[Rfam]
RNA sequence: GCUGGGCAUGGUGGCACGUGCCUGUAGUCCUAGCUACUUGGGAGGCUGAGCCCGCUGGAUCGCUUGAGCCCAGGAGUUCUGGGCUGCAGUGCGCUAUGCCGAGCAGGUGUCCGUGCUAUGGCUGGCAUCAAUACAGUGAGACAGGGGGAGCCGGGGCAUGCCAGGUUGACUAAGGAGGGGUGAAACAGCCCAGGUCGGAGAUGGAGCAGGUCAAAGCUCCUGUGCUGGUCAGUAGCGGGAUCGCGCCUGUGAAUAGCCACUGCGGCGUAGCCUGGGCAACACAGAGAGACGCGGGAUCCU
Numbered sequence: 001g002c003u004g005g006g007c008a009u010g011g012u013g014g015c016a017c018g019u020g021c022c023u024g025u026a027g028u029c030c031u032a033g034c035u036a037c038u039u040g041g042g043a044g045g046c047u048g049a050g051c052c053c054g055c056u057g058g059a060u061c062g063c064u065u066g067a068g069c070c071c072a073g074g075a076g077u078u079c080u081g082g083g084c085u086g087c088a089g090u091g092c093g094c095u096a097u098g099c100c101g102a103g104c105a106g107g108u109g110u111c112c113g114u115g116c117u118a119u120g121g122c123u124g125g126c127a128u129c130a131a132u133a134c135a136g137u138g139a140g141a142c143a144g145g146g147g148g149a150g151c152c153g154g155g156g157c158a159u160g161c162c163a164g165g166u167u168g169a170c171u172a173a174g175g176a177g178g179g180g181u182g183a184a185a186c187a188g189c190c191c192a193g194g195u196c197g198g199a200g201a202u203g204g205a206g207c208a209g210g211u212c213a214a215a216g217c218u219c220c221u222g223u224g225c226u227g228g229u230c231a232g233u234a235g236c237g238g239g240a241u242c243g244c245g246c247c248u249g250u251g252a253a254u255a256g257c258c259a260c261u262g263c264g265g266c267g268u269a270g271c272c273u274g275g276g277c278a279a280c281a282c283a284g285a286g287a288g289a290c291g292c293g294g295g296a297u298c299c300u
Stems, first nucleotide, its partner, number of pairs: 001046003004023007028043003048298002051295005060287002063284002068277007079270003083266009093257005099251001103250008111239002114237005119231010129168004136161003140157001142155001145152002170174001176221006188211003195204003
Rfam assigns this 300-nucleotide RNA sequence from Strigops habroptila to the family "Metazoan signal recognition particle RNA".
Rfam classes the family as a non-coding RNA gene.
NCBI's taxonomy places the organism under Eukaryota, Coelurosauria, Aves, Psittacidae, Strigops.
Pairs were carried over by alignment from the consensus structure, which is taken from published work.
About the family: The signal recognition particle (SRP) is a universally conserved ribonucleoprotein.
Its family is annotated with SRP-dependent cotranslational protein targeting to membrane, signal sequence recognition and signal recognition particle, endoplasmic reticulum targeting in the Gene Ontology.